[Rfam]
The family of this 77-nucleotide RNA sequence from Chloroceryle aenea is "mir-1788 microRNA precursor family". A search with the family's covariance model found it, with a score of 66 bits. Pairs were carried over by alignment from the consensus structure, which was predicted with RNAalifold. Rfam links the family to the GO terms RISC complex and miRNA-mediated post-transcriptional gene silencing.

RNA sequence: CUGUCUCUAACGCUUGUUUUCCAUUGCCUGUGGUUUGUUCCAGUGACACAGGCAGCAAAAGCAAGUCUGGGAGGCUG
Numbered sequence: 001c002u003g004u005c006u007c008u009a010a011c012g013c014u015u016g017u018u019u020u021c022c023a024u025u026g027c028c029u030g031u032g033g034u035u036u037g038u039u040c041c042a043g044u045g046a047c048a049c050a051g052g053c054a055g056c057a058a059a060a061g062c063a064a065g066u067c068u069g070g071g072a073g074g075c076u077g
Stems, first nucleotide, its partner, number of pairs: 003075002006072003010068001012066009024055007032047001